Annotation: A member of the RNA family "SAM riboswitch aptamer (S box leader)" from Lysinibacillus sp. BF-4, 92 nucleotides long. It scores 78 bits against the family's covariance model. The base pairs follow the family's consensus structure, which is taken from published work. Rfam links the family to the GO term regulation of gene expression. The family is grouped with related families in Rfam's "SAM clan".

[Rfam]
RNA sequence: UUCUUAUCGAGAGAAGCCGAGGGAAAGGCCCUACGACGCUUCAGCAACCUCUUGCCUAGGCAAGAAAGGUGCUAAUUCCUAUGAGAUAAGAG
Number, nucleotide and partner (000 for none) at each position: 001u092002u091003c090004u089005u088006a087007u086008c085009g000010a000011g000012a000013g042014a041015a040016g039017c038018c000019g000020a000021g031022g030023g029024a000025a000026a080027g079028g078029c023030c022031c021032u000033a000034c000035g000036a000037c000038g017039c016040u015041u014042c013043a073044g072045c071046a070047a000048c069049c068050u065051c064052u063053u062054g000055c000056c000057u000058a000059g000060g000061c000062a053063a052064g051065a050066a000067a000068g049069g048070u046071g045072c044073u043074a000075a000076u000077u084078c028079c027080u026081a000082u000083g000084a077085g008086a007087u006088a005089a004090g003091a002092g001